[Rfam]
The record is a 134-nucleotide RNA from Felis catus, which matches "Small nucleolar RNA SNORA71" in Rfam. The family's consensus secondary structure was predicted with PFOLD. Rfam's curators write: The members of this family belong to the H/ACA class of snoRNAs which bind a number of proteins (including dyskerin, Gar1p and Nop10p) to form snoRNP complexes. The family's RNA type in Rfam is H/ACA-box small nucleolar RNA.

RNA sequence: ACCUGCAUUCAGAAGCGAUCACGGGCUGUCUGUGCUCUGGUCAUUGAUAAUGCAGGGAGAGGAAUUGUUGAAAGCAGUUUCCCGUGUUUGGAGGGUCCACACCCAUCCCUUUCAAAUGCUGGCGCUUUCGCACA
Numbered sequence: 001a002c003c004u005g006c007a008u009u010c011a012g013a014a015g016c017g018a019u020c021a022c023g024g025g026c027u028g029u030c031u032g033u034g035c036u037c038u039g040g041u042c043a044u045u046g047a048u049a050a051u052g053c054a055g056g057g058a059g060a061g062g063a064a065u066u067g068u069u070g071a072a073a074g075c076a077g078u079u080u081c082c083c084g085u086g087u088u089u090g091g092a093g094g095g096u097c098c099a100c101a102c103c104c105a106u107c108c109c110u111u112u113c114a115a116a117u118g119c120u121g122g123c124g125c126u127u128u129c130g131c132a133c134a
Base pairs, nucleotide, nucleotide: 002056003055004054005053006052007051008050009049014045015044017042018041019040020039021038023037024036025035026034067131069130070129071128072127073126074125075124086117087116088115089114090113091111092110093109094108095107